[Rfam]
RNA: c-di-AMP riboswitch aptamer (ydaO/yuaA leader)
Organism: Geodermatophilus marinus
RNA sequence: GCACCACCUGCACCGCUCCAGGACGGGGGCGGGGGACCCACUUCGACGCCCGCGGCCGACGGCCGCCGGCGUCUCGGGGUGAAGCCGCGUCACGCGCGGCCGGGGCACCGAUCGCUCCGAACCCGACAGCUCACCUCGCAGGCGGCGGAUCGGAGUUCU
Numbered sequence: 001g002c003a004c005c006a007c008c009u010g011c012a013c014c015g016c017u018c019c020a021g022g023a024c025g026g027g028g029g030c031g032g033g034g035g036a037c038c039c040a041c042u043u044c045g046a047c048g049c050c051c052g053c054g055g056c057c058g059a060c061g062g063c064c065g066c067c068g069g070c071g072u073c074u075c076g077g078g079g080u081g082a083a084g085c086c087g088c089g090u091c092a093c094g095c096g097c098g099g100c101c102g103g104g105g106c107a108c109c110g111a112u113c114g115c116u117c118c119g120a121a122c123c124c125g126a127c128a129g130c131u132c133a134c135c136u137c138g139c140a141g142g143c144g145g146c147g148g149a150u151c152g153g154a155g156u157u158c159u
Base pairs, nucleotide, nucleotide: 005144007142008141013027014026029139030138031137032136033135034134039076077124078123079122085099086098087097088096102118103117104116105115